A member of the RNA family "Small nucleolar RNA Z221/R21b" from Solanum lycopersicum, 95 nucleotides long. The organism belongs to Solanum subgen. Lycopersicon, within Eukaryota. A reference for the family is Chen et al. (2003), "The high diversity of snoRNAs in plants: identification and comparative study of 120 snoRNA genes from Oryza sativa", Nucleic Acids Res. The base pairs follow the family's consensus structure, which was predicted with WAR. By type it is a C/D-box small nucleolar RNA.
RNA sequence: AAGGAGUUAUGAGAUUUAGAGAUUGUCAUAUACCACUUACAAAUUUAAUUGGAGUGAUGAUAAAUUUCUUAUAGCCAUUUUAUUUCUGAGAUCUU
Numbered sequence: 001a002a003g004g005a006g007u008u009a010u011g012a013g014a015u016u017u018a019g020a021g022a023u024u025g026u027c028a029u030a031u032a033c034c035a036c037u038u039a040c041a042a043a044u045u046u047a048a049u050u051g052g053a054g055u056g057a058u059g060a061u062a063a064a065u066u067u068c069u070u071a072u073a074g075c076c077a078u079u080u081u082a083u084u085u086c087u088g089a090g091a092u093c094u095u
Base pairs, nucleotide, nucleotide: 001095002094003093004092